[Rfam]
RNA: mir-74 microRNA precursor family
RNA sequence: GCCACACAUAUGGGCUUCCUCAUCUUUCCCAGCGAAACUACUAAUUACGCUGGCAAGACAAGGCAGUCUACAUGUGUGGC
Numbered sequence: 001g002c003c004a005c006a007c008a009u010a011u012g013g014g015c016u017u018c019c020u021c022a023u024c025u026u027u028c029c030c031a032g033c034g035a036a037a038c039u040a041c042u043a044a045u046u047a048c049g050c051u052g053g054c055a056a057g058a059c060a061a062g063g064c065a066g067u068c069u070a071c072a073u074g075u076g077u078g079g080c
Base pairs, nucleotide, nucleotide: 002079003078004077005076006075007074008073009072012069013068014067015066016065018063019062020060023058024057025056026055029053030052031051032050033049035046036045